[Rfam]
RNA sequence: GACGAACCACCGCCUAAUCGCCGCGAGGCGAGCCGGGGACCCAGGUACCCGGGGUGCAGCCACCCAGUGGCCGGGCGCGCUUCCCGCCCGAACCCGUCAGCUAACCCGGUCGGCGGCCGAGUGGGAAGAA
Numbered sequence: 001g002a003c004g005a006a007c008c009a010c011c012g013c014c015u016a017a018u019c020g021c022c023g024c025g026a027g028g029c030g031a032g033c034c035g036g037g038g039a040c041c042c043a044g045g046u047a048c049c050c051g052g053g054g055u056g057c058a059g060c061c062a063c064c065c066a067g068u069g070g071c072c073g074g075g076c077g078c079g080c081u082u083c084c085c086g087c088c089c090g091a092a093c094c095c096g097u098c099a100g101c102u103a104a105c106c107c108g109g110u111c112g113g114c115g116g117c118c119g120a121g122u123g124g125g126a127a128g129a130a
Stems, first nucleotide, its partner, number of pairs: 011115004018031005032110006042051001052095003060070004073089004
Source information:
The family of this 130-nucleotide RNA from Actinoplanes teichomyceticus is "c-di-AMP riboswitch aptamer (ydaO/yuaA leader)". Rfam describes the family as follows. This family represents a conserved RNA structure found upstream of the ydaO and yuaA genes in Bacillus subtilis and related genes in other bacteria. Taxonomically the source falls in Actinoplanes (Bacteria, Bacillati, Actinomycetota, Actinomycetes). Its family is annotated with cyclic-di-AMP binding and regulation of gene expression in the Gene Ontology.